[Rfam]
RNA sequence: GUACAGGUUUGGGUUUAUGGCAGGUCCAUCCCCCUUGGUCUCUCAUAGUGACCCAUGCCAGAGCAAACUGUGGACUUGAACUAUUGCCUGGCCUCUCUGUCCAUUGACUGCAGGCAUUGAAGUGGAUUGCACAGUG
Numbered sequence: 001g002u003a004c005a006g007g008u009u010u011g012g013g014u015u016u017a018u019g020g021c022a023g024g025u026c027c028a029u030c031c032c033c034c035u036u037g038g039u040c041u042c043u044c045a046u047a048g049u050g051a052c053c054c055a056u057g058c059c060a061g062a063g064c065a066a067a068c069u070g071u072g073g074a075c076u077u078g079a080a081c082u083a084u085u086g087c088c089u090g091g092c093c094u095c096u097c098u099g100u101c102c103a104u105u106g107a108c109u110g111c112a113g114g115c116a117u118u119g120a121a122g123u124g125g126a127u128u129g130c131a132c133a134g135u136g
Stems, first nucleotide, its partner, number of pairs: 001058003006052001008050001015048006022041003025037001071129003075125002082119002087114002089110003093106001
This 136-nucleotide RNA sequence from Myotis myotis belongs to the Rfam family "Small nucleolar RNA SNORA42/SNORA80 family". By type it is an H/ACA-box small nucleolar RNA. Lineage of the source: Eukaryota > Chordata > Mammalia > Theria > Myotis. Pairs were carried over by alignment from the consensus structure, which was predicted with RNAalifold. A reference for the family is Schattner et al. (2006), "A computational screen for mammalian pseudouridylation guide H/ACA RNAs", RNA. Rfam describes the family as follows. The members of this family belong to the H/ACA class of snoRNAs that guide the sites of modification of uridines to pseudouridines. Human ACA42 (SNORA42) was cloned from HeLa cells by immunoprecipitation with anti-GAR1 antibody. Its is predicted to guide the pseudouridylation of residues U109 and U572 of 18S rRNA. ACA42 shares the same host gene with ACA26, ACA46, ACA50. This family also includes mammalian snoRNA ACA67 (SNORA80) which was identified by computational screening and its expression in mouse experimentally verified by Northern blot and primer extension analysis. ACA67 is proposed to guide the pseudouridylation of the same 18S rRNA residues as ACA42.